[Rfam]
The record is a 298-nucleotide RNA from Mesitornis unicolor, which matches "Metazoan signal recognition particle RNA" in Rfam. Lineage of the source: Eukaryota > Deuterostomia > Gnathostomata > Teleostomi > Mesitornis. Gene Ontology terms of the family: SRP-dependent cotranslational protein targeting to membrane, signal sequence recognition and signal recognition particle, endoplasmic reticulum targeting.
RNA sequence: GCUAAAUGGAACUAAGUGCCUGUAGUCUCAGCUACUCAGGAGGCUGAGGCUGCCGGAUCACUUGAGCCCAGGAGUUCUGGGCUGCAGUGGGCUAUGCCGAGCGGGCGUCCACGCUAAGGCCACCAUCAAUAUGGUGAGUCCCGGGGAGCCAGGGGAUACCGGGUUGAAUAAGGAGGGGUGAACCGGCCCAGGUCAGAGAUGGAGCAGGUCAGAGCUCCCGUGGCAGUCAGUAGCAGGAUCACACCUGUGCGUAGCCACUGCAGCGUAGCCUGGGCAACACAGAGAGACGCGGGCUCCU
Numbered sequence: 001g002c003u004a005a006a007u008g009g010a011a012c013u014a015a016g017u018g019c020c021u022g023u024a025g026u027c028u029c030a031g032c033u034a035c036u037c038a039g040g041a042g043g044c045u046g047a048g049g050c051u052g053c054c055g056g057a058u059c060a061c062u063u064g065a066g067c068c069c070a071g072g073a074g075u076u077c078u079g080g081g082c083u084g085c086a087g088u089g090g091g092c093u094a095u096g097c098c099g100a101g102c103g104g105g106c107g108u109c110c111a112c113g114c115u116a117a118g119g120c121c122a123c124c125a126u127c128a129a130u131a132u133g134g135u136g137a138g139u140c141c142c143g144g145g146g147a148g149c150c151a152g153g154g155g156a157u158a159c160c161g162g163g164u165u166g167a168a169u170a171a172g173g174a175g176g177g178g179u180g181a182a183c184c185g186g187c188c189c190a191g192g193u194c195a196g197a198g199a200u201g202g203a204g205c206a207g208g209u210c211a212g213a214g215c216u217c218c219c220g221u222g223g224c225a226g227u228c229a230g231u232a233g234c235a236g237g238a239u240c241a242c243a244c245c246u247g248u249g250c251g252u253a254g255c256c257a258c259u260g261c262a263g264c265g266u267a268g269c270c271u272g273g274g275c276a277a278c279a280c281a282g283a284g285a286g287a288c289g290c291g292g293g294c295u296c297c298u
Base pairs, nucleotide, nucleotide: 001017002016003015026041027040028039046296047295048294050292051291052290053289058285059284061282062281066275067274068273069272070271071270072269077268078267079266081264082263083262084261085260086259087258088257089256091255092254093253094252095251096250097249101248102247103246104245105244107242108241109237110236113234114233115232116231118228119227120226123223124222125221126220127166128165129164130163132161133160134159135158136157139154140153141152143150144149175218176217177216178215179214185210186209187208188207193202194201195200

It scores 200 bits against the family's covariance model.